[Rfam]
This 80-nucleotide RNA sequence from Chlorogloeopsis fritschii belongs to the Rfam family "Photosynthesis regulatory RNA1". A reference for the family is Georg et al. (2014), "The small regulatory RNA SyR1/PsrR1 controls photosynthetic functions in cyanobacteria", Plant Cell. It scores 44 bits against the family's covariance model. Formerly known as Syr1 discovered in Synechocystis sp PCC 6803, is a regulatory factor controlling photosynthetic functions. PsrR1 interacts with the ribosome binding regions of several photosynthesis-related mRNAs. In particular, psaL mRNA is processed by RNase E only in the presence of PsrR1. The base pairs follow the family's consensus structure, which was predicted with CMfinder.

RNA sequence: AAGAUUUUUUACCUCUCGGCUCGCUAUCUCUCAUUGUUAUUCGUAUCUCUUUUGCCUCGGUUGGUUUCGCCGAGGUUUUU
Numbered sequence: 001a002a003g004a005u006u007u008u009u010u011a012c013c014u015c016u017c018g019g020c021u022c023g024c025u026a027u028c029u030c031u032c033a034u035u036g037u038u039a040u041u042c043g044u045a046u047c048u049c050u051u052u053u054g055c056c057u058c059g060g061u062u063g064g065u066u067u068c069g070c071c072g073a074g075g076u077u078u079u080u
Stems, first nucleotide, its partner, number of pairs: 054076008